[Rfam]
RNA sequence: UUUCCUCAGCCUUACUCCAGGGUGUGUCUGAUCCAUGAAAUGCCCUGGCAUUGCCUGAGGAUACAUUAAAACCUUGCUCAAUUCCCUCCCCAACGGGAUUCUGAGUUUCCUUUGGGGUCUACAGGUUGAGCAAACACG
Number, nucleotide and partner (000 for none) at each position: 001u000002u000003u061004c060005c059006u058007c057008a056009g055010c000011c053012u000013u000014a000015c000016u000017c048018c047019a046020g045021g044022g043023u000024g041025u040026g000027u038028c037029u000030g000031a000032u000033c000034c000035a000036u000037g028038a027039a000040a025041u024042g000043c022044c021045c020046u019047g018048g017049c000050a000051u000052u000053g011054c000055c009056u008057g007058a006059g005060g004061a003062u000063a000064c000065a000066u000067u000068a000069a000070a000071a000072c000073c000074u000075u132076g131077c130078u000079c128080a127081a000082u000083u000084c000085c000086c000087u000088c117089c116090c115091c114092a113093a112094c000095g111096g110097g109098a108099u000100u000101c000102u000103g000104a000105g000106u000107u000108u098109c097110c096111u095112u093113u092114g091115g090116g089117g088118u000119c000120u000121a000122c000123a000124g000125g000126u000127u080128g079129a000130g077131c076132a075133a000134a000135c000136a000137c000138g000
A member of the RNA family "Small nucleolar RNA SNORA49" from Pogona vitticeps, 138 nucleotides long. It scores 109 bits against the family's covariance model. NCBI's taxonomy places the organism under Eukaryota, Teleostomi, Sauria, Squamata, Pogona. The snoRNA ACA49 has no identified RNA target. NB genomic sequence 1-nt different from published.